[Rfam]
RNA sequence: GAUGGAAACUGCAGCGACCAACCAUGUUGACAAAUGAAGAAAAUGCUUUUGUCUACAAAAUGCAGUGAUCCUACAGAAAUGGGAAGGCUUAGAACAGCUGAUUAAAGCUUGAUCAUUCCCUGCCAUACAGC
Numbered sequence: 001g002a003u004g005g006a007a008a009c010u011g012c013a014g015c016g017a018c019c020a021a022c023c024a025u026g027u028u029g030a031c032a033a034a035u036g037a038a039g040a041a042a043a044u045g046c047u048u049u050u051g052u053c054u055a056c057a058a059a060a061u062g063c064a065g066u067g068a069u070c071c072u073a074c075a076g077a078a079a080u081g082g083g084a085a086g087g088c089u090u091a092g093a094a095c096a097g098c099u100g101a102u103u104a105a106a107g108c109u110u111g112a113u114c115a116u117u118c119c120c121u122g123c124c125a126u127a128c129a130g131c
Stems, first nucleotide, its partner, number of pairs: 004071003008066005025057003029053003036048002082124002085121002090115001092113001096109004
Dot-bracket structure: ...(((.(((((............(((.(((....((.........))..))).)))....)))))..)))..........((.((...(.(...((((......))))...).)....)).)).......
Shown here is a 131-nucleotide sequence from Chrysochloris asiatica, a member of the family "Small Cajal body specific RNA 3". By type it is a small Cajal body RNA. Its Rfam clan is "SCARNA3 clan".